[Rfam]
Nucleotides: 228
Stems, first nucleotide, its partner, number of pairs: 006067002009064001076091006106143002109139002165200005171194002176189004211226005
Number, partner (000 for none) and nucleotide at each position: 001000a002000g003000g004000c005000c006067c007066g008000c009064g010000c011000c012000g013000u014000a015000a016000a017000g018000g019000c020000u021000u022000u023000a024000a025000a026000g027000c028000c029000c030000g031000g032000g033000g034000g035000a036000a037000a038000u039000c040000c041000c042000c043000c044000u045000c046000c047000c048000a049000a050000c051000c052000c053000c054000u055000c056000c057000a058000g059000c060000c061000u062000c063000c064009c065000c066007c067006g068000g069000c070000c071000g072000c073000c074000c075000a076091u077090c078089a079088c080087c081086c082000g083000g084000a085000c086081g087080g088079g089078u090077g091076a092000c093000u094000u095000c096000g097000a098000c099000c100000a101000a102000c103000u104000g105000g106143g107142c108000u109139g110138g111000a112000u113000u114000u115000g116000g117000c118000g119000c120000g121000g122000g123000u124000u125000g126000c127000g128000u129000g130000g131000c132000a133000u134000a135000u136000g137000c138110u139109c140000u141000c142107g143106c144000u145000c146000a147000c148000c149000a150000c151000c152000c153000g154000a155000c156000a157000c158000a159000u160000a161000c162000g163000u164000c165200g166199g167198c168197c169196c170000c171194c172193g173000g174000c175000c176189g177188g178187g179186a180000c181000u182000g183000g184000c185000a186179u187178c188177c189176c190000g191000a192000u193172c194171g195000a196169g197168g198167g199166c200165c201000u202000g203000a204000c205000c206000a207000c208000c209000g210000a211226g212225g213224a214223a215222g216000a217000a218000g219000c220000a221000c222215c223214u224213u225212c226211c227000c228000g

The family of this 228-nucleotide sequence from Streptomyces showdoensis is "Streptomyces sRNA 4677". The match comes from Rfam's covariance-model search (98 bits). The family's RNA type in Rfam is small RNA. Rfam's curators write: Located in the intergenic region between anti-sigma factor SCO4677 gene and a putative regulatory protein gene SCO4676. scr4677 expression requires the SCO4677 activity and scr4677 sRNA itself seem to affect the levels of the SCO4676-associated transcripts. The literature on the family includes a 2014 paper in PLoS One by Hindra et al., "Complex intra-operonic dynamics mediated by a small RNA in Streptomyces coelicolor". Pairs were carried over by alignment from the consensus structure.